[Rfam]
RNA: Small nucleolar RNA R12
RNA sequence: UGUUGAAUGACGAUAAGAAUCAUUCGGAUUCCCACUGAUGUUGUUAAUGUAUGAUUUCACUACCAGCUACUUCUGACAACA
Numbered sequence: 001u002g003u004u005g006a007a008u009g010a011c012g013a014u015a016a017g018a019a020u021c022a023u024u025c026g027g028a029u030u031c032c033c034a035c036u037g038a039u040g041u042u043g044u045u046a047a048u049g050u051a052u053g054a055u056u057u058c059a060c061u062a063c064c065a066g067c068u069a070c071u072u073c074u075g076a077c078a079a080c081a
Stems, first nucleotide, its partner, number of pairs: 001081005